Rfam assigns this 154-nucleotide RNA sequence from Achlya hypogyna to the family "U12 minor spliceosomal RNA". It is annotated as a spliceosomal small nuclear RNA. A search with the family's covariance model found it, with a score of 60 bits. The base pairs follow the family's consensus structure.
[Rfam]
RNA sequence: GCGGCUUAAACUCAAUGAGUAAGGAAACUAACGCCCUACCUGACAAGUAGGGAUCCAAAGACCCCGGUCUUUGGCAAUUUCUGUGGGAUCCAUGGAACGGUUUUUGCGACCCACCCCCUACUUUGGGGUGGGGGGCGAGAGCCGGUCCCCCUCC
Numbered sequence: 001g002c003g004g005c006u007u008a009a010a011c012u013c014a015a016u017g018a019g020u021a022a023g024g025a026a027a028c029u030a031a032c033g034c035c036c037u038a039c040c041u042g043a044c045a046a047g048u049a050g051g052g053a054u055c056c057a058a059a060g061a062c063c064c065c066g067g068u069c070u071u072u073g074g075c076a077a078u079u080u081c082u083g084u085g086g087g088a089u090c091c092a093u094g095g096a097a098c099g100g101u102u103u104u105u106g107c108g109a110c111c112c113a114c115c116c117c118c119u120a121c122u123u124u125g126g127g128g129u130g131g132g133g134g135g136c137g138a139g140a141g142c143c144g145g146u147c148c149c150c151c152u153c154c
Base pairs, nucleotide, nucleotide: 005023006022007021008020034052035051036050037049038048039047056073057072058071059070060069086154087153088152094149095148097146098145100143103138104137107135110132111131113129114128115127116126117125